[Rfam]
A member of the RNA family "Wolbachia sRNA 46" from Hymenochirus boettgeri, 138 nucleotides long.
A search with the family's covariance model found it, with a score of 65 bits.
The organism belongs to Hymenochirus, within Eukaryota.
The family has 3 seed sequences and 237 matches in Rfam 15.1.

RNA sequence: AUAGCAUAUAUGAAGGAAAGAUGUCACUCAUGGGUCUUUGGACGAAAACAGCUUUUUUGUACAAUCACAAUGUGAUUGUACAAUAAAAAGCUGUUUUCGUCAAAAGACCCGUGAGUGACAUCUUUUUCCUUUAUAUUA
Numbered sequence: 001a002u003a004g005c006a007u008a009u010a011u012g013a014a015g016g017a018a019a020g021a022u023g024u025c026a027c028u029c030a031u032g033g034g035u036c037u038u039u040g041g042a043c044g045a046a047a048a049c050a051g052c053u054u055u056u057u058u059g060u061a062c063a064a065u066c067a068c069a070a071u072g073u074g075a076u077u078g079u080a081c082a083a084u085a086a087a088a089a090g091c092u093g094u095u096u097u098c099g100u101c102a103a104a105a106g107a108c109c110c111g112u113g114a115g116u117g118a119c120a121u122c123u124u125u126u127u128c129c130u131u132u133a134u135a136u137u138a
Stems, first nucleotide, its partner, number of pairs: 011133005022120018041101012

Rfam classes the family as a small RNA.